Eukaryotic large subunit ribosomal RNA: a 266-nucleotide part of an RNA from Gossypium armourianum. Pairs were carried over by alignment from the consensus structure, which is taken from published work.
RNA sequence: GAGUCUGACAUUUGUGCGAGUCAAUGGGCUAGAAAACCCAUAAGGUUUAAGGAAGCUGAUUGGCGGGAUCCCUCGUGGGUGUACUGUCGAUCGACCUUGAUCUUUUGAGAAAGGUUCGAGAGAGAGCAUGCCUGUCGAGACCCGAAAUAUGGUGAACUAUGCUUGAGCGGGAUGAUGCUAGAGGAAACUCUAGUGGAGGCCUGCAGUGAUAUUUUGACUUUGUUAUAAGGGCAAAAGACUAAUUGAACCGUCUAGUAGUUGGUUCC
Numbered sequence: 001g002a003g004u005c006u007g008a009c010a011u012u013u014g015u016g017c018g019a020g021u022c023a024a025u026g027g028g029c030u031a032g033a034a035a036a037c038c039c040a041u042a043a044g045g046u047u048u049a050a051g052g053a054a055g056c057u058g059a060u061u062g063g064c065g066g067g068a069u070c071c072c073u074c075g076u077g078g079g080u081g082u083a084c085u086g087u088c089g090a091u092c093g094a095c096c097u098u099g100a101u102c103u104u105u106u107g108a109g110a111a112a113g114g115u116u117c118g119a120g121a122g123a124g125a126g127c128a129u130g131c132c133u134g135u136c137g138a139g140a141c142c143c144g145a146a147a148u149a150u151g152g153u154g155a156a157c158u159a160u161g162c163u164u165g166a167g168c169g170g171g172a173u174g175a176u177g178c179u180a181g182a183g184g185a186a187a188c189u190c191u192a193g194u195g196g197a198g199g200c201c202u203g204c205a206g207u208g209a210u211a212u213u214u215u216g217a218c219u220u221u222g223u224u225a226u227a228a229g230g231g232c233a234a235a236a237g238a239c240u241a242a243u244u245g246a247a248c249c250g251u252c253u254a255g256u257a258g259u260u261g262g263u264u265c266c
Stems, first nucleotide, its partner, number of pairs: 006137005013130005020046003025040004030035001050057002062088005070079002091120001092118003095114003101108002141262002144259001149251005158227004163222001165220003168216001170202002173199001177194007206213001230240002